[Rfam]
The family of this 111-nucleotide RNA from Dipodomys ordii is "Small nucleolar RNA SNORD90".
Gene Ontology terms of the family: nucleolus and RNA processing.
Rfam classes the family as a C/D-box small nucleolar RNA.
About the family: snoRNA HBII-295 belongs to the family of C/D snoRNAs. It is the human orthologue of the mouse MBII-295 and has no identified RNA target.
RNA sequence: GUUACUGUUUUCUAAGUGUCUAAUGAUGAAUUUCAUAGGGCAGAUUCUGAGAUGAAAAUUGAAUUCAUCAUUGAAACUCCAAUUAUGAAAUCUGAAGACACUUGAAGACAU
Dot-bracket structure: ............(((((((((........(((((((.(((.....((.(.((((((.......)))))).).))...)))....)))))))....))))))))).......